[Rfam]
Source information
Rfam assigns this 78-nucleotide RNA sequence from Paraliobacillus sp. PM-2 to the family "c-di-GMP-I riboswitch aptamer". The match comes from Rfam's covariance-model search (72 bits). Its family is annotated with cyclic-di-GMP binding in the Gene Ontology. Pairs were carried over by alignment from the consensus structure, which is taken from published work. Clan: c-di-GMP_I riboswitch clan.
RNA sequence: ACUGAAAAAUGGCAAACUUAUUGAAAAAUAAGGACGCAAAGCUCCAGGCCUGAAUAAAAUGGCGGCUGAGCUACCAAU
Numbered sequence: 001a002c003u004g005a006a007a008a009a010u011g012g013c014a015a016a017c018u019u020a021u022u023g024a025a026a027a028a029u030a031a032g033g034a035c036g037c038a039a040a041g042c043u044c045c046a047g048g049c050c051u052g053a054a055u056a057a058a059a060u061g062g063c064g065g066c067u068g069a070g071c072u073a074c075c076a077a078u
Stems, first nucleotide, its partner, number of pairs: 012037002017032006040072004045068003048063003